[Rfam]
RNA sequence: CAGGUGCUGGACCUACCAGCACCAGUGACACUAGGGCACAGAGGAAGUGGCUAAUUCUACGCUCAGUGCUCAGAAUAGUGGGCACUAAGAAUGGUUUGUAGCCUGACAUUC
Number, nucleotide and partner (000 for none) at each position: 001c000002a000003g000004g037005u036006g000007c034008u033009g032010g031011a000012c000013c000014u000015a000016c000017c000018a000019g000020c000021a000022c000023c000024a000025g000026u000027g000028a000029c000030a000031c010032u009033a008034g007035g000036g005037c004038a000039c000040a000041g000042a000043g000044g000045a000046a000047g000048u000049g103050g102051c101052u000053a000054a000055u000056u000057c094058u093059a092060c000061g000062c089063u088064c000065a000066g000067u084068g083069c082070u081071c080072a079073g000074a000075a000076u000077a000078g000079u072080g071081g070082g069083c068084a067085c000086u000087a000088a063089g062090a000091a000092u059093g058094g057095u000096u000097u000098g000099u000100a000101g051102c050103c049104u000105g000106a000107c000108a000109u000110u000111c000
Shown here is a 111-nucleotide sequence from Pipistrellus kuhlii, a member of the family "Small nucleolar RNA SNORA43". The organism belongs to Pipistrellus, within Eukaryota. A search with the family's covariance model found it, with a score of 103 bits. Gene Ontology terms of the family: nucleolus and RNA processing. By type it is an H/ACA-box small nucleolar RNA. About the family: ACA43 is a member of the H/ACA class of snoRNA that guide the sites of modification of uridines to pseudouridines. Clan: SNORA17 clan. The base pairs follow the family's consensus structure, which was predicted with RNAfold.